[Rfam]
Shown here is a 321-nucleotide RNA sequence from Ramalina farinacea, a member of the family "A. fumigatus sRNA Afu_309". A reference for the family is Jochl et al. (2008), "Small ncRNA transcriptome analysis from Aspergillus fumigatus suggests a novel mechanism for regulation of protein synthesis", Nucleic Acids Res. It scores 119 bits against the family's covariance model. The family's RNA type in Rfam is small RNA.

Nucleotides: 321
Stems, first nucleotide, its partner, number of pairs: 018139008026070002029067001031064003034057005039051002076131004087118003091114003150215002166204004171200004175195002177192006220314003223309005236298005243292003274284004
Number, partner (000 for none) and nucleotide at each position: 001000c002000u003000c004000u005000u006000c007000u008000c009000c010000c011000a012000a013000c014000c015000c016000a017000c018139a019138g020137a021136u022135c023134u024133g025132u026070g027069u028000c029067c030000u031064u032063a033062c034057c035056u036055c037054g038053c039051c040050c041000c042000a043000c044000c045000c046000c047000c048000g049000u050040g051039g052000u053038g054037u055036g056035g057034g058000c059000u060000u061000g062033g063032u064031a065000u066000u067029g068000c069027a070026c071000a072000a073000c074000a075000u076131c077130g078129g079128c080000c081000a082000a083000c084000u085000c086000a087118u088117g089116g090000a091114g092113c093112c094000a095000u096000c097000a098000a099000g100000a101000u102000u103000a104000u105000c106000u107000c108000g109000c110000a111000u112093g113092g114091u115000g116089u117088c118087a119000a120000u121000c122000u123000u124000c125000c126000g127000a128079g129078c130077c131076g132025a133024c134023a135022g136021a137020u138019c139018u140000c141000a142000g143000a144000g145000c146000a147000a148000a149000g150215a151214c152000a153000g154000c155000c156000u157000u158000c159000g160000u161000u162000c163000u164000u165000u166204u167203g168202c169201c170000u171200g172199a173198g174197c175195u176194c177192g178191c179190c180189c181188c182187u183000a184000c185000a186000u187182g188181g189180g190179g191178g192177c193000u194176g195175a196000u197174g198173c199172u200171c201169g202168g203167u204166g205000a206000g207000g208000g209000g210000g211000u212000u213000g214151g215150u216000u217000g218000a219000g220314g221313g222312c223309g224308c225307c226306a227305u228000a229000u230000u231000c232000c233000a234000a235000g236298a237297c238296u239295c240294u241000u242000u243292g244291c245290c246000g247000a248000c249000u250000u251000u252000g253000u254000g255000c256000u257000c258000c259000u260000u261000a262000a263000a264000a265000g266000g267000a268000g269000a270000c271000u272000g273000c274284c275283c276282u277281c278000g279000u280000c281277g282276a283275g284274g285000g286000g287000u288000g289000a290245g291244g292243u293000u294240a295239g296238g297237g298236u299000u300000a301000a302000a303000c304000c305227a306226u307225g308224g309223c310000u311000u312222g313221c314220c315000u316000a317000c318000a319000u320000u321000u